[Rfam]
RNA sequence: AAAUGGGCAAUAAUCAUUUUCUUGUUUUAUCAAGAGGGUGCUAUUGGUCCUUUCUUU
Numbered sequence: 001a002a003a004u005g006g007g008c009a010a011u012a013a014u015c016a017u018u019u020u021c022u023u024g025u026u027u028u029a030u031c032a033a034g035a036g037g038g039u040g041c042u043a044u045u046g047g048u049c050c051u052u053u054c055u056u057u
Stems, first nucleotide, its partner, number of pairs: 001053003005049002008046005014040001019036006
RNA: Plastid-psbA-3 3UTR RNA